[Rfam]
RNA sequence: UGAGUAGGACAGGUGGCCGCUGCCGCGAUACCGCAAGGCCGCGGGAGAGGAAAGUCCGGGCUUCACAGGGCAGGGUGCCAGAUAACGUCUGGCGGAGGCGACUCCAGGGACAGUGCAACAGAAAUGUACCGCCUUUUUGGCUGCGGCCUUAAAGGUAAGGGUGGAAGGGCAGUGUAAGAGACUACCGCCCGUCUGGUAACAGGCGGGGCACAUGUAAACCCCACUCGAAGCAAGACCGAACAGGAAGCAUAUGGCUGCCCGUCAGCUUCCGGGUAGGUUGCUUGAGGCUGCCGGCGACGGCAGUCCUAGAUAGAUGGCCAUUCAACGACAUAACCCGGCUUAUCGUCCUGCUCACAUA
Numbered sequence: 001u002g003a004g005u006a007g008g009a010c011a012g013g014u015g016g017c018c019g020c021u022g023c024c025g026c027g028a029u030a031c032c033g034c035a036a037g038g039c040c041g042c043g044g045g046a047g048a049g050g051a052a053a054g055u056c057c058g059g060g061c062u063u064c065a066c067a068g069g070g071c072a073g074g075g076u077g078c079c080a081g082a083u084a085a086c087g088u089c090u091g092g093c094g095g096a097g098g099c100g101a102c103u104c105c106a107g108g109g110a111c112a113g114u115g116c117a118a119c120a121g122a123a124a125u126g127u128a129c130c131g132c133c134u135u136u137u138u139g140g141c142u143g144c145g146g147c148c149u150u151a152a153a154g155g156u157a158a159g160g161g162u163g164g165a166a167g168g169g170c171a172g173u174g175u176a177a178g179a180g181a182c183u184a185c186c187g188c189c190c191g192u193c194u195g196g197u198a199a200c201a202g203g204c205g206g207g208g209c210a211c212a213u214g215u216a217a218a219c220c221c222c223a224c225u226c227g228a229a230g231c232a233a234g235a236c237c238g239a240a241c242a243g244g245a246a247g248c249a250u251a252u253g254g255c256u257g258c259c260c261g262u263c264a265g266c267u268u269c270c271g272g273g274u275a276g277g278u279u280g281c282u283u284g285a286g287g288c289u290g291c292c293g294g295c296g297a298c299g300g301c302a303g304u305c306c307u308a309g310a311u312a313g314a315u316g317g318c319c320a321u322u323c324a325a326c327g328a329c330a331u332a333a334c335c336c337g338g339c340u341u342a343u344c345g346u347c348c349u350g351c352u353c354a355c356a357u358a
Base pairs, nucleotide, nucleotide: 001354002353003352004351005350006349007348008347009346010345011343012322013321014320015319016318017317018316020047021046023044024043025042026041027040052341053340054339056338057337058336059335060334061230062229063228064227068260069259070258071257073226074225075224076223077222078092079091080090081089082088093107094105095104096103097102108221109220113219114218115215116214117213129160130159131156132155133154134153135152136151139148140147141146168186169185171183172182173181187209188207189206190205191204192203193202194201195200234279235278236277237276243270244269245268246267247266248265252264253263254262255261286305287304288303289302290301291300292299293298
Rfam assigns this 358-nucleotide RNA from Enterocloster bolteae to the family "Bacterial RNase P class A". It is one of the family's seed sequences. It is annotated as a ribozyme. Gene Ontology terms of the family: ribonuclease P activity, dimeric ribonuclease P complex and tRNA processing.